[Rfam]
RNA sequence: GAGUUAUUAACUUAAUUGGUAAAGUGUUUUCUUGUCAAGAAAAAAGAUGUCGGAUCGUAGCCGGCCUAACUCG
Numbered sequence: 001g002a003g004u005u006a007u008u009a010a011c012u013u014a015a016u017u018g019g020u021a022a023a024g025u026g027u028u029u030u031c032u033u034g035u036c037a038a039g040a041a042a043a044a045a046g047a048u049g050u051c052g053g054a055u056c057g058u059a060g061c062c063g064g065c066c067u068a069a070c071u072c073g
Stems, first nucleotide, its partner, number of pairs: 001072006010025004027043005049065005
The record is a 73-nucleotide RNA from Zymoseptoria brevis, which matches "tRNA" in Rfam. Taxonomically the source falls in Zymoseptoria (Eukaryota, Fungi, saccharomyceta, leotiomyceta). About the family: Transfer RNA (tRNA) molecules are approximately 80 nucleotides in length. Their secondary structure includes four short double-helical elements and three loops (D, anti-codon, and T loops). Further hydrogen bonds mediate the characteristic L-shaped molecular structure. tRNAs have two regions of fundamental functional importance: the anti-codon, which is responsible for specific mRNA codon recognition, and the 3' end, to which the tRNAs corresponding amino acid is attached (by aminoacyl-tRNA synthetases). tRNAs cope with the degeneracy of the genetic code in two manners: having more than one tRNA (with a specific anti-codon) for a particular amino acid; and 'wobble' base-pairing, i.e. permitting non-standard base-pairing at the 3rd anti-codon position.